Shown here is a 51-nucleotide sequence, a member of the family "Streptococcus sRNA SpF59 (ldcC RNA)".
RNA sequence: GAACCACUCAUUAAAGAGUUAAGGCAUACGGACAGCCGGGUUCACUGCCGA
Numbered sequence: 001g002a003a004c005c006a007c008u009c010a011u012u013a014a015a016g017a018g019u020u021a022a023g024g025c026a027u028a029c030g031g032a033c034a035g036c037c038g039g040g041u042u043c044a045c046u047g048c049c050g051a
Stems, first nucleotide, its partner, number of pairs: 001043005006019004